RNA sequence: GAACACGAUUUAGAAUUGCGAAGUCAAGCGGGCCCCCUUCCUUUUGGGGGGUGGCGGCUUGGGGAAAUUCCCCGGACACCAGGGCAGAGAGUGCCAGCGUCAAAGCGCAAACUCCCUCGGAGAUGAAGCUAUGCGAAGAUGGCUCACUUAUAUGGGCAGGAGCUAUUUGCGGAUUCUUGAGGACUGAUGGUCAUACUAAAAGUUAUGCAAUUGGCUCAGCGGCAUAUGGUGGACGUCGUGCCAUCGUCGCUUGGAGCUAACCCGACGGGGAUUACUCAUGUUGUGUU
Numbered sequence: 001g002a003a004c005a006c007g008a009u010u011u012a013g014a015a016u017u018g019c020g021a022a023g024u025c026a027a028g029c030g031g032g033c034c035c036c037c038u039u040c041c042u043u044u045u046g047g048g049g050g051g052u053g054g055c056g057g058c059u060u061g062g063g064g065a066a067a068u069u070c071c072c073c074g075g076a077c078a079c080c081a082g083g084g085c086a087g088a089g090a091g092u093g094c095c096a097g098c099g100u101c102a103a104a105g106c107g108c109a110a111a112c113u114c115c116c117u118c119g120g121a122g123a124u125g126a127a128g129c130u131a132u133g134c135g136a137a138g139a140u141g142g143c144u145c146a147c148u149u150a151u152a153u154g155g156g157c158a159g160g161a162g163c164u165a166u167u168u169g170c171g172g173a174u175u176c177u178u179g180a181g182g183a184c185u186g187a188u189g190g191u192c193a194u195a196c197u198a199a200a201a202g203u204u205a206u207g208c209a210a211u212u213g214g215c216u217c218a219g220c221g222g223c224a225u226a227u228g229g230u231g232g233a234c235g236u237c238g239u240g241c242c243a244u245c246g247u248c249g250c251u252u253g254g255a256g257c258u259a260a261c262c263c264g265a266c267g268g269g270g271a272u273u274a275c276u277c278a279u280g281u282u283g284u285g286u287u
Base pairs, nucleotide, nucleotide: 002287003286004285005284006283007282008281009280011278014212015211016210017209018208019207024062025061026060027059028058029057032052033051034050035049036048037047038046066273067272068271070270071269072268073267083095084094085093086092097108098107099106100105112182117180118179120178121177122176123175128170129169133163134162148158151155214257215256216255217254219252

RNase MRP: a 287-nucleotide RNA sequence from Bremia lactucae.
RNase MRP is an enzymatically active ribonucleoprotein with two distinct roles in eukaryotes. In mitochondria it plays a direct role in the initiation of mitochondrial DNA replication. In the nucleus it is involved in precursor rRNA processing, where it cleaves the internal transcribed spacer 1 between 18S and 5.8S rRNAs. Despite distinct functions, RNase MRP has been shown to be evolutionarily related to RNase P. Like eukaryotic RNase P, RNase MRP is not catalytically active without associated protein subunits.
It is annotated as a ribozyme.